Notes: A member of the RNA family "Singlet oxygen resistance RNA X" from Roseovarius gahaiensis, 73 nucleotides long. The family has 8 seed sequences and 528 matches in Rfam 15.1. Rfam classes the family as a small RNA. NCBI's taxonomy places the organism under Bacteria, Pseudomonadati, Pseudomonadota, Roseobacteraceae, Roseovarius. A reference for the family is Peng et al. (2016), "Regulation of a polyamine transporter by the conserved 3' UTR-derived sRNA SorX confers resistance to singlet oxygen and organic hydroperoxides in Rhodobacter sphaeroides", RNA Biol. SorX (RSs2461)like SorY is a singlet oxygen induced sRNA that counteracts oxidative stress by targeting mRNA for a transporter in Rhodobacter. It also has an impact on resistance against organic hydroperoxides. It targets SD sequence of potA mRNA via an aSD sequence. The aSD sequence and some neighbouring nucleotides are identical to the one of SorY (targets takP mRNA).
RNA sequence: ACCCGUUGCAUGUGCGGGUCAUCACAUGCACCUCCCUGUUGGACUGGCCCCGGCAUUUUGCCGGGGCUUUUUU
Numbered sequence: 001a002c003c004c005g006u007u008g009c010a011u012g013u014g015c016g017g018g019u020c021a022u023c024a025c026a027u028g029c030a031c032c033u034c035c036c037u038g039u040u041g042g043a044c045u046g047g048c049c050c051c052g053g054c055a056u057u058u059u060g061c062c063g064g065g066g067c068u069u070u071u072u073u
Base pairs, nucleotide, nucleotide: 008029009028010027011026012025013024014023047067048066049065050064051063052062053061054060